RNA sequence: ACAACAACUGAAUCGUAUUUUCGUAUAAUCCCGGGAAUCGGCCCGGGAGUCUCUACGGGGUCACCGCAAAUGAUCCGGCUACGGAAAGGCGAGAAGGAAUA
Numbered sequence: 001a002c003a004a005c006a007a008c009u010g011a012a013u014c015g016u017a018u019u020u021u022c023g024u025a026u027a028a029u030c031c032c033g034g035g036a037a038u039c040g041g042c043c044c045g046g047g048a049g050u051c052u053c054u055a056c057g058g059g060g061u062c063a064c065c066g067c068a069a070a071u072g073a074u075c076c077g078g079c080u081a082c083g084g085a086a087a088g089g090c091g092a093g094a095a096g097g098a099a100u101a
Stems, first nucleotide, its partner, number of pairs: 018087008029048007058076006

Source information
Purine riboswitch aptamer: a 101-nucleotide RNA sequence from Cohnella zeiphila. Gene Ontology term of the family: purine nucleobase biosynthetic process. The organism belongs to Cohnella, within Bacteria.